RNA sequence: GAUAAAUAAAAAUCGAAUGUUCGUAUAUGUCGGGGAAUCGGCCCCGUACGUUUCUACCAGUCUACCGUAAAUAGACGGACUACGAAUAAUUGCUGCACAGCG
Number, nucleotide and partner (000 for none) at each position: 001g000002a000003u000004a000005a000006a000007u000008a000009a000010a000011a000012a000013u000014c000015g000016a000017a000018u088019g087020u086021u085022c084023g083024u082025a081026u000027a000028u000029g049030u048031c046032g045033g044034g043035g042036a000037a000038u000039c000040g000041g000042c035043c034044c033045c032046g031047u000048a030049c029050g000051u000052u000053u000054c000055u000056a000057c000058c078059a000060g076061u075062c074063u073064a072065c000066c000067g000068u000069a000070a000071a000072u064073a063074g062075a061076c060077g000078g058079a000080c000081u025082a024083c023084g022085a021086a020087u019088a018089a000090u000091u000092g000093c000094u000095g000096c000097a000098c000099a000100g000101c000102g000

Shown here is a 102-nucleotide RNA sequence from Alkalicoccus urumqiensis, a member of the family "Purine riboswitch aptamer". It scores 70 bits against the family's covariance model. The family has 133 seed sequences and 4,097 matches in Rfam 15.1. Its family is annotated with purine nucleobase biosynthetic process in the Gene Ontology. NCBI's taxonomy places the organism under Bacteria, Bacillati, Bacilli, Bacillaceae, Alkalicoccus. For this family Rfam cites "Adenine riboswitches and gene activation by disruption of a transcription terminator" (Mandal and Breaker, Nat Struct Mol Biol, 2004).